[Rfam]
RNA sequence: UCAAUAGCCAGGCUUCUGGCUAAAUUCCAGCUCGUAGCUGGUAUUUAGCCAAGCUUGACUGGAAA
Numbered sequence: 001u002c003a004a005u006a007g008c009c010a011g012g013c014u015u016c017u018g019g020c021u022a023a024a025u026u027c028c029a030g031c032u033c034g035u036a037g038c039u040g041g042u043a044u045u046u047a048g049c050c051a052a053g054c055u056u057g058a059c060u061g062g063a064a065a
Stems, first nucleotide, its partner, number of pairs: 007059001009057001011055004017051008027041005
Dot-bracket structure: ......(.(.((((..((((((((..(((((.....)))))..)))))))))))).).)......
The record is a 65-nucleotide sequence from Peromyscus maniculatus, which matches "mir-344 microRNA precursor family" in Rfam. On this family, see Chiang et al., Genes Dev 2010: "Mammalian microRNAs: experimental evaluation of novel and previously annotated genes". The base pairs follow the family's consensus structure, which was predicted with RNAalifold. Rfam links the family to the GO terms miRNA-mediated post-transcriptional gene silencing and RISC complex.